[Rfam]
RNA sequence: UUUAAAGCAUUGAUUAGAAGUAGUAAUAUUUUAUUUCAUUUAUUUAGAGAGCUGCUGUUUGGUGAAAAGUAGUAAUGAAGAAAUAUGAACUUGUCUAGGAGUUUCUUUGUUAAAAGCAAAGACGUUAACUGCGUUAAAGUUUCAAGUGGAAAUAAUUAAUUUUAUUUCAACAAGAGUGGUACCGCGGAAUUUAACCUUUCGUCUCUUAA
Numbered sequence: 001u002u003u004a005a006a007g008c009a010u011u012g013a014u015u016a017g018a019a020g021u022a023g024u025a026a027u028a029u030u031u032u033a034u035u036u037c038a039u040u041u042a043u044u045u046a047g048a049g050a051g052c053u054g055c056u057g058u059u060u061g062g063u064g065a066a067a068a069g070u071a072g073u074a075a076u077g078a079a080g081a082a083a084u085a086u087g088a089a090c091u092u093g094u095c096u097a098g099g100a101g102u103u104u105c106u107u108u109g110u111u112a113a114a115a116g117c118a119a120a121g122a123c124g125u126u127a128a129c130u131g132c133g134u135u136a137a138a139g140u141u142u143c144a145a146g147u148g149g150a151a152a153u154a155a156u157u158a159a160u161u162u163u164a165u166u167u168c169a170a171c172a173a174g175a176g177u178g179g180u181a182c183c184g185c186g187g188a189a190u191u192u193a194a195c196c197u198u199u200c201g202u203c204u205c206u207u208a209a
Base pairs, nucleotide, nucleotide: 007102008101015097016096017095018094026086027085028084029083030082031081040075041074051073052072053071054070055069056068105121106120107119108118109117110116111115123133124132125131149168150167151166152165153164154163155162173206174205175204176203184202185201186200187199188198
Source information: T-box leader: a 209-nucleotide RNA sequence from Clostridium intestinale. A search with the family's covariance model found it, with a score of 134 bits. Lineage of the source: Bacteria > Bacillota > Eubacteriales > Clostridium > Clostridium intestinale. On this family, see Grundy et al., J Bacteriol 1994: "Interaction between the acceptor end of tRNA and the T box stimulates antitermination in the Bacillus subtilis tyrS gene: a new role for the discriminator base". Its family is annotated with tRNA binding in the Gene Ontology. The family has 48 seed sequences and 19,395 matches in Rfam 15.1.